[Rfam]
RNA sequence: GUUUUAGGGAGGGAGAGUGGUGUGUGGUUUGCGUGUUGUGUGCGGAGUCGUGGUGUCGCGUGCGGGCUGAGUGGACGCGUGAGUGUGCGCGCUUGGAGCGUGUUAGGCGAGUGCGUGCGCCCACCCUGCGCCCCUCCUCCCGCUUACAUGUUGAUCUUAUUUGAUCGGGUCGUGACCCCAGCCCCGCCGGUCCGACCCGAAAUGAAAAGCUCUCCUCCUGUGAAGCCCCCUCCUCGAGGCGCUGUGCAGAGAGGCCCCUUAGGCGGCGGCAACGCUGCGGUCCCCGAGGUCCUGGAGCUGGCCCUGCGGGGCCCGGCGCUCAGAAGUGAUGAAUUGAUCAGAUAGACGAGGCCGGGCUUGUGCCCGGCCACUGAUUAUCGAGGCGAUUCUGAUCUGG
Dot-bracket structure: ...................................................((((((....)....................(((..(((((.((............)).)))))..))).......)))))...........................(((..((((.(((.(...((.((...)).)).)))).)))).....))).......................(((((.((.(((..((.(.(..(((((......)).)))..).).))))))).))))).......((((((((....))).)))))...((((......((((((.............((((.((......)).))))..............))))))...)))).
Numbered sequence: 001g002u003u004u005u006a007g008g009g010a011g012g013g014a015g016a017g018u019g020g021u022g023u024g025u026g027g028u029u030u031g032c033g034u035g036u037u038g039u040g041u042g043c044g045g046a047g048u049c050g051u052g053g054u055g056u057c058g059c060g061u062g063c064g065g066g067c068u069g070a071g072u073g074g075a076c077g078c079g080u081g082a083g084u085g086u087g088c089g090c091g092c093u094u095g096g097a098g099c100g101u102g103u104u105a106g107g108c109g110a111g112u113g114c115g116u117g118c119g120c121c122c123a124c125c126c127u128g129c130g131c132c133c134c135u136c137c138u139c140c141c142g143c144u145u146a147c148a149u150g151u152u153g154a155u156c157u158u159a160u161u162u163g164a165u166c167g168g169g170u171c172g173u174g175a176c177c178c179c180a181g182c183c184c185c186g187c188c189g190g191u192c193c194g195a196c197c198c199g200a201a202a203u204g205a206a207a208a209g210c211u212c213u214c215c216u217c218c219u220g221u222g223a224a225g226c227c228c229c230c231u232c233c234u235c236g237a238g239g240c241g242c243u244g245u246g247c248a249g250a251g252a253g254g255c256c257c258c259u260u261a262g263g264c265g266g267c268g269g270c271a272a273c274g275c276u277g278c279g280g281u282c283c284c285c286g287a288g289g290u291c292c293u294g295g296a297g298c299u300g301g302c303c304c305u306g307c308g309g310g311g312c313c314c315g316g317c318g319c320u321c322a323g324a325a326g327u328g329a330u331g332a333a334u335u336g337a338u339c340a341g342a343u344a345g346a347c348g349a350g351g352c353c354g355g356g357c358u359u360g361u362g363c364c365c366g367g368c369c370a371c372u373g374a375u376u377a378u379c380g381a382g383g384c385g386a387u388u389c390u391g392a393u394c395u396g397g
Stems, first nucleotide, its partner, number of pairs: 052132005057062001083120003088115005094109002160208003165200004170195003174192001178190002181187002232289005238283002241281003246278002249275001251273001254270003257266002297317005302311003321396004331389006350369004355364002